[Rfam]
RNA sequence: AUUCCUGACGGUGAUGGGGUUCACCGGAACCGCCUGCGGUUUUCACCCGGGCUGAUAACUCCUACGCACCC
Numbered sequence: 001a002u003u004c005c006u007g008a009c010g011g012u013g014a015u016g017g018g019g020u021u022c023a024c025c026g027g028a029a030c031c032g033c034c035u036g037c038g039g040u041u042u043u044c045a046c047c048c049g050g051g052c053u054g055a056u057a058a059c060u061c062c063u064a065c066g067c068a069c070c071c
Base pairs, nucleotide, nucleotide: 010025011024012023013022016062017061018060019059020058021057032052033051034050035049
Rfam assigns this 71-nucleotide sequence from Nitrospira lenta to the family "Fluoride riboswitch aptamer (crcB RNA motif)". A reference for the family is Zhao et al. (2017), "An excited state underlies gene regulation of a transcriptional riboswitch", Nat Chem Biol. The source organism's lineage runs through Bacteria, Nitrospirota, Nitrospiria, Nitrospiraceae and Nitrospira.